[Rfam]
RNA sequence: CUCUUAUCAUGAGCGGGGGAGGGACUGGCCCUAUGAAACCGCGGCAACCUUCAAAUCUACUUUGAAAAAGGUGCUAAUUCCAGCAGAGCUUUUGUUCUGAAAGAUAAGAG
Numbered sequence: 001c002u003c004u005u006a007u008c009a010u011g012a013g014c015g016g017g018g019g020a021g022g023g024a025c026u027g028g029c030c031c032u033a034u035g036a037a038a039c040c041g042c043g044g045c046a047a048c049c050u051u052c053a054a055a056u057c058u059a060c061u062u063u064g065a066a067a068a069a070g071g072u073g074c075u076a077a078u079u080c081c082a083g084c085a086g087a088g089c090u091u092u093u094g095u096u097c098u099g100a101a102a103g104a105u106a107a108g109a110g
Base pairs, nucleotide, nucleotide: 001110002109003108004107005106006105007104008103013042014041015040016039021031022030023029025083026082027081028080043075044074045073046072048071049070050066051065052064053063079102084099085098086097087096088095089094